[Rfam]
RNA: MIR2606 microRNA precursor family
RNA sequence: AAAACUUAGGUACAAUUCCUUAGGUAUUUUUUGUAUGGUUUUUAAUUAAAUUCACCGUGAUUUUCUCAAAUCUAUAAUUUUCUCAAAGUUUGUUAUAUCCAAAAAAAUAUGUAAUUUUAGUUAAGAACCAUACAAAAAGCACCUAAGGAAUUGUACCUAAGUUUU
Numbered sequence: 001a002a003a004a005c006u007u008a009g010g011u012a013c014a015a016u017u018c019c020u021u022a023g024g025u026a027u028u029u030u031u032u033g034u035a036u037g038g039u040u041u042u043u044a045a046u047u048a049a050a051u052u053c054a055c056c057g058u059g060a061u062u063u064u065c066u067c068a069a070a071u072c073u074a075u076a077a078u079u080u081u082c083u084c085a086a087a088g089u090u091u092g093u094u095a096u097a098u099c100c101a102a103a104a105a106a107a108u109a110u111g112u113a114a115u116u117u118u119a120g121u122u123a124a125g126a127a128c129c130a131u132a133c134a135a136a137a138a139g140c141a142c143c144u145a146a147g148g149a150a151u152u153g154u155a156c157c158u159a160a161g162u163u164u165u
Base pairs, nucleotide, nucleotide: 002164003163004162005161006160007159008158010156011155012154013153015151016150017149018148019147020146021145022144023143024142025141027139028138029137030136031135032134033133034132035131036130037129038128039127040126041125042124043123045121046120047119048118049117050116